This 165-nucleotide RNA from Chrysochloris asiatica belongs to the Rfam family "U1 spliceosomal RNA". The organism belongs to Chrysochloris, within Eukaryota. The literature on the family includes a 1990 paper in Proc Natl Acad Sci U S A by Kretzner et al., "Saccharomyces cerevisiae U1 small nuclear RNA secondary structure contains both universal and yeast-specific domains". U1 is a small nuclear RNA (snRNA) component of the spliceosome (involved in pre-mRNA splicing). Its 5' end forms complementary base pairs with the 5' splice junction, thus defining the 5' donor site of an intron. There are significant differences in sequence and secondary structure between metazoan and yeast U1 snRNAs, the latter being much longer (568 nucleotides as compared to 164 nucleotides in human). Nevertheless, secondary structure predictions suggest that all U1 snRNAs share a 'common core' consisting of helices I, II, the proximal region of III, and IV. This family does not contain the larger yeast sequences. A search with the family's covariance model found it, with a score of 139 bits. Rfam classes the family as a spliceosomal small nuclear RNA.
RNA sequence: AUACUUACCUAGCAGGGGAGAUUCCAUGAUCAUGAAGGUGGUUUCCCCAGGGCGAGGCUAAUCCAUUGCACUUUGGGAUGUGCUGACUCCUGAAAUUACUCCAAAUGUGAGAAACUUGACUGCAUAAUUUGUGGUAGUGGGGGACUGCGUUUGGGCUUUCCCCUG
Dot-bracket structure: ...........(((((((.((..((((..........)))).)).)))((((.(.(((..((((..........)).))..)))..)))))..((((..((.......)).).).))..))))...............((((((..((......))..)))))).
Numbered sequence: 001a002u003a004c005u006u007a008c009c010u011a012g013c014a015g016g017g018g019a020g021a022u023u024c025c026a027u028g029a030u031c032a033u034g035a036a037g038g039u040g041g042u043u044u045c046c047c048c049a050g051g052g053c054g055a056g057g058c059u060a061a062u063c064c065a066u067u068g069c070a071c072u073u074u075g076g077g078a079u080g081u082g083c084u085g086a087c088u089c090c091u092g093a094a095a096u097u098a099c100u101c102c103a104a105a106u107g108u109g110a111g112a113a114a115c116u117u118g119a120c121u122g123c124a125u126a127a128u129u130u131g132u133g134g135u136a137g138u139g140g141g142g143g144a145c146u147g148c149g150u151u152u153g154g155g156c157u158u159u160c161c162c163c164u165g
Stems, first nucleotide, its partner, number of pairs: 012123004016048003020044002024041004049091004054087001056084003061079002063076002094117002096114001097112001100110002139164006147156002